[Rfam]
RNA sequence: GGCAGAGUAGGUAUAUGUGCGUUAAGUGCUGGUAGAACGGGAAGUUGUCUACUUGACGAAAAAUGGAGUUUCCAUUUGCGGUACAUAUAUUGCAUUCCGCUGCC
Numbered sequence: 001g002g003c004a005g006a007g008u009a010g011g012u013a014u015a016u017g018u019g020c021g022u023u024a025a026g027u028g029c030u031g032g033u034a035g036a037a038c039g040g041g042a043a044g045u046u047g048u049c050u051a052c053u054u055g056a057c058g059a060a061a062a063a064u065g066g067a068g069u070u071u072c073c074a075u076u077u078g079c080g081g082u083a084c085a086u087a088u089a090u091u092g093c094a095u096u097c098c099g100c101u102g103c104c
Stems, first nucleotide, its partner, number of pairs: 001104005010091010020080003026057002029055001031053006040097003044093001061077006
RNA: THF (Tetrahydrofolate) riboswitch aptamer
Organism: Clostridium homopropionicum